U11 spliceosomal RNA: a 119-nucleotide RNA from Rhynochetos jubatus.

RNA sequence: AAAAAGGGCUUCUGCUGUGCGUGGCACGGGGUGGGGCCUUGUGGCUGCCCCCGCAGAAUCAACAUCCAGAGAUUUUGGAAGCACUAUUUUUGCAGUGGGGGUUUUAUUUUGGAGCCCUC
Numbered sequence: 001a002a003a004a005a006g007g008g009c010u011u012c013u014g015c016u017g018u019g020c021g022u023g024g025c026a027c028g029g030g031g032u033g034g035g036g037c038c039u040u041g042u043g044g045c046u047g048c049c050c051c052c053g054c055a056g057a058a059u060c061a062a063c064a065u066c067c068a069g070a071g072a073u074u075u076u077g078g079a080a081g082c083a084c085u086a087u088u089u090u091u092g093c094a095g096u097g098g099g100g101g102u103u104u105u106a107u108u109u110u111g112g113a114g115c116c117c118u119c
Stems, first nucleotide, its partner, number of pairs: 008082005013026005027053005034046002037043001054077007097119005103113004
It is annotated as a spliceosomal small nuclear RNA. It scores 71 bits against the family's covariance model.